RNA sequence: AUGAAGGUUCAAGGAGAGAUUGCCUCGCCCCGGAUAUUUCCGAUCAGGAUAUCGGAUAUUGGGGAGGGACGGCGGCGCCGAAGGAGUAAGCCGCUGGAUGGCGGUGAAUCUCUCAGGCAAAAGGACUUGACCCGGACG
Numbered sequence: 001a002u003g004a005a006g007g008u009u010c011a012a013g014g015a016g017a018g019a020u021u022g023c024c025u026c027g028c029c030c031c032g033g034a035u036a037u038u039u040c041c042g043a044u045c046a047g048g049a050u051a052u053c054g055g056a057u058a059u060u061g062g063g064g065a066g067g068g069a070c071g072g073c074g075g076c077g078c079c080g081a082a083g084g085a086g087u088a089a090g091c092c093g094c095u096g097g098a099u100g101g102c103g104g105u106g107a108a109u110c111u112c113u114c115a116g117g118c119a120a121a122a123g124g125a126c127u128u129g130a131c132c133c134g135g136a137c138g
Base pairs, nucleotide, nucleotide: 006133007132009130010129011128012127013126020075021074022073023072077118078117079116080114081113084112085111086110090105091104092103093102094101095100
RNA: Glycine riboswitch aptamer
Organism: Paenibacillus hemerocallicola